[Rfam]
RNA sequence: GGAGUCGGCCGGGCAGUCGCGUCGCGCAAGCGCCGAGGAAAGUCCGGGCUCCAUAGGGCAAGGUGCCAGGUAACGCCUGGGCGGCGCGAGCCGACGGAAAGUGCAACAGAAAACAAACCGCCGAACGGUGUCGCAAGACAUGCGUGGCAAGGGUGAAACGGUGCGGUAAGAGCGCACCGCGCGUGGGGACAACGCCACGUGGCACGGCAAACCCCACCUGGAGCAAGGCCAAAUAGGGAGGCGAUGGCGUGCCCGCGCCGCUUCCGGGUUGGCUGCUGGAGCCUGACGGCGACGUCAGGCCUAGAGGAAUGACUGUCUAGAACAGAACCCGGCUUACGGGCCGACUCCUUUC
Numbered sequence: 001g002g003a004g005u006c007g008g009c010c011g012g013g014c015a016g017u018c019g020c021g022u023c024g025c026g027c028a029a030g031c032g033c034c035g036a037g038g039a040a041a042g043u044c045c046g047g048g049c050u051c052c053a054u055a056g057g058g059c060a061a062g063g064u065g066c067c068a069g070g071u072a073a074c075g076c077c078u079g080g081g082c083g084g085c086g087c088g089a090g091c092c093g094a095c096g097g098a099a100a101g102u103g104c105a106a107c108a109g110a111a112a113a114c115a116a117a118c119c120g121c122c123g124a125a126c127g128g129u130g131u132c133g134c135a136a137g138a139c140a141u142g143c144g145u146g147g148c149a150a151g152g153g154u155g156a157a158a159c160g161g162u163g164c165g166g167u168a169a170g171a172g173c174g175c176a177c178c179g180c181g182c183g184u185g186g187g188g189a190c191a192a193c194g195c196c197a198c199g200u201g202g203c204a205c206g207g208c209a210a211a212c213c214c215c216a217c218c219u220g221g222a223g224c225a226a227g228g229c230c231a232a233a234u235a236g237g238g239a240g241g242c243g244a245u246g247g248c249g250u251g252c253c254c255g256c257g258c259c260g261c262u263u264c265c266g267g268g269u270u271g272g273c274u275g276c277u278g279g280a281g282c283c284u285g286a287c288g289g290c291g292a293c294g295u296c297a298g299g300c301c302u303a304g305a306g307g308a309a310u311g312a313c314u315g316u317c318u319a320g321a322a323c324a325g326a327a328c329c330c331g332g333c334u335u336a337c338g339g340g341c342c343g344a345c346u347c348c349u350u351u352c
Stems, first nucleotide, its partner, number of pairs: 001348010011337001012317007020035002023032003040335003044332005049223004056254004061219005066080005081095001082093004096214002101212002103208002118152002120148004126142002160178006179203001180201005185195001188193001227274004237265006246259005281300008
Rfam assigns this 352-nucleotide RNA sequence from Metallibacterium scheffleri to the family "Bacterial RNase P class A". By type it is a ribozyme. Pairs were carried over by alignment from the consensus structure, which is taken from published work.